[Rfam]
Shown here is a 110-nucleotide RNA from Rhizobium metallidurans, a member of the family "Alphaproteobacterial ar15". The source organism's lineage runs through Bacteria, Pseudomonadati, Pseudomonadota, Hyphomicrobiales and Rhizobium. A reference for the family is del Val et al. (2012), "A survey of sRNA families in alpha-proteobacteria", RNA Biol. The family's RNA type in Rfam is small RNA.
RNA sequence: AGUUGCUUAUGCAGUCGGCCGGCCUCGCUGGUCGAUGACGCAACUGUUCCCCUCUGGAGGUUUUUAAGAACCUUCAUGACUACGGCCACCGUCACGAGCGGUGGCUUUUU
Numbered sequence: 001a002g003u004u005g006c007u008u009a010u011g012c013a014g015u016c017g018g019c020c021g022g023c024c025u026c027g028c029u030g031g032u033c034g035a036u037g038a039c040g041c042a043a044c045u046g047u048u049c050c051c052c053u054c055u056g057g058a059g060g061u062u063u064u065u066a067a068g069a070a071c072c073u074u075c076a077u078g079a080c081u082a083c084g085g086c087c088a089c090c091g092u093c094a095c096g097a098g099c100g101g102u103g104g105c106u107u108u109u110u
Stems, first nucleotide, its partner, number of pairs: 001045006008038001014036004055076007085105006092097001